[Rfam]
This 55-nucleotide RNA sequence from Candidatus Afipia apatlaquensis belongs to the Rfam family "terC RNA". It scores 58 bits against the family's covariance model. By type it is a cis-regulatory element.
RNA sequence: CUACCAGGCCGGGCCCCUCUGGCAGCCAUCAUGGCUGUGAUGUCGGACUGGAAUU
Numbered sequence: 001c002u003a004c005c006a007g008g009c010c011g012g013g014c015c016c017c018u019c020u021g022g023c024a025g026c027c028a029u030c031a032u033g034g035c036u037g038u039g040a041u042g043u044c045g046g047a048c049u050g051g052a053a054u055u
Stems, first nucleotide, its partner, number of pairs: 006049002009046004022038006
Annotation
The family's consensus secondary structure is taken from published work.